[Rfam]
A member of the RNA family "Acido-Lenti-1 RNA" from Roseimaritima ulvae, 46 nucleotides long. A search with the family's covariance model found it, with a score of 39 bits.
RNA sequence: CCAUGGGCUCGCGCCCAUGGCUGCACCCCGUCGUCCCUUCGGAACU
Numbered sequence: 001c002c003a004u005g006g007g008c009u010c011g012c013g014c015c016c017a018u019g020g021c022u023g024c025a026c027c028c029c030g031u032c033g034u035c036c037c038u039u040c041g042g043a044a045c046u
Stems, first nucleotide, its partner, number of pairs: 001020008033045002036042002